[Rfam]
RNA sequence: UCCGGGGGAAGCUCACCGCCGAGGCCACGCACGGGGUGUGCGUCACCCACGCCCCGCCUCGGGGAAGGUCUGAGGGAAGGGCCGCCCGCGGCUCCAGCAGAGCCCCGCCCGCGACGGGGGCGGGUGAGCCACCAGCAAGGGGGGGCGCCGCGUAUAUCGCUUACGAUGGGCCGGUCUCACGGGCAGGAGAAGCCGAGGCAGGUUCCGCCAGGGGAGCCCCGGCGGAUGCUCGUGGCCCCGCGGUGCUUUGAGACAGACUCACGGCCGGCGCUUGAGUCCAAUGGGUGAGGUGGGGCACCGCCCUACAACCCAAUUCAGACUACUCUCCCCCGGA
Numbered sequence: 001u002c003c004g005g006g007g008g009a010a011g012c013u014c015a016c017c018g019c020c021g022a023g024g025c026c027a028c029g030c031a032c033g034g035g036g037u038g039u040g041c042g043u044c045a046c047c048c049a050c051g052c053c054c055c056g057c058c059u060c061g062g063g064g065a066a067g068g069u070c071u072g073a074g075g076g077a078a079g080g081g082c083c084g085c086c087c088g089c090g091g092c093u094c095c096a097g098c099a100g101a102g103c104c105c106c107g108c109c110c111g112c113g114a115c116g117g118g119g120g121c122g123g124g125u126g127a128g129c130c131a132c133c134a135g136c137a138a139g140g141g142g143g144g145g146c147g148c149c150g151c152g153u154a155u156a157u158c159g160c161u162u163a164c165g166a167u168g169g170g171c172c173g174g175u176c177u178c179a180c181g182g183g184c185a186g187g188a189g190a191a192g193c194c195g196a197g198g199c200a201g202g203u204u205c206c207g208c209c210a211g212g213g214g215a216g217c218c219c220c221g222g223c224g225g226a227u228g229c230u231c232g233u234g235g236c237c238c239c240g241c242g243g244u245g246c247u248u249u250g251a252g253a254c255a256g257a258c259u260c261a262c263g264g265c266c267g268g269c270g271c272u273u274g275a276g277u278c279c280a281a282u283g284g285g286u287g288a289g290g291u292g293g294g295g296c297a298c299c300g301c302c303c304u305a306c307a308a309c310c311c312a313a314u315u316c317a318g319a320c321u322a323c324u325c326u327c328c329c330c331c332g333g334a
Base pairs, nucleotide, nucleotide: 001334002333003332004331007328008327009326012289013288014287015286016285017284020061021060022059023058024057034048035047036046037045038044070318071317072316073315074314080266081265082264083263090104091103092102093101094100105123106122107121108120109119110118124262125261126260127259128258130256144247145246146245147244148243149242150241151240152239290306291305292304293303294302295301296300